The record is a 155-nucleotide RNA sequence from Catenovulum agarivorans, which matches "Molybdenum/Tungsten riboswitch aptamer (Moco RNA motif)" in Rfam. The match comes from Rfam's covariance-model search (83 bits). Gene Ontology terms of the family: molybdenum ion binding, regulation of gene expression and tungstate binding. The base pairs follow the family's consensus structure, which is taken from published work. NCBI's taxonomy places the organism under Bacteria, Pseudomonadota, Gammaproteobacteria, Alteromonadales, Catenovulum agarivorans.
RNA sequence: UAUCGUUUAAAACUCCGAAGCCUAAUGCGCUAAGUCUGAAGAUAUGCAAGUUAGGCCGUAAAAACCCGUUUGGACAAACCUGUGGGUUAUUUACCAGGGUUAGCUUAGAAAUAAUCUGGCCUCCCGUAUUUGGAAAGGUGUUUAUGUUACAAGAC
Numbered sequence: 001u002a003u004c005g006u007u008u009a010a011a012a013c014u015c016c017g018a019a020g021c022c023u024a025a026u027g028c029g030c031u032a033a034g035u036c037u038g039a040a041g042a043u044a045u046g047c048a049a050g051u052u053a054g055g056c057c058g059u060a061a062a063a064a065c066c067c068g069u070u071u072g073g074a075c076a077a078a079c080c081u082g083u084g085g086g087u088u089a090u091u092u093a094c095c096a097g098g099g100u101u102a103g104c105u106u107a108g109a110a111a112u113a114a115u116c117u118g119g120c121c122u123c124c125c126g127u128a129u130u131u132g133g134a135a136a137g138g139u140g141u142u143u144a145u146g147u148u149a150c151a152a153g154a155c
Stems, first nucleotide, its partner, number of pairs: 011142003015138002020056007029047002034043003058094005097122007105114003123133002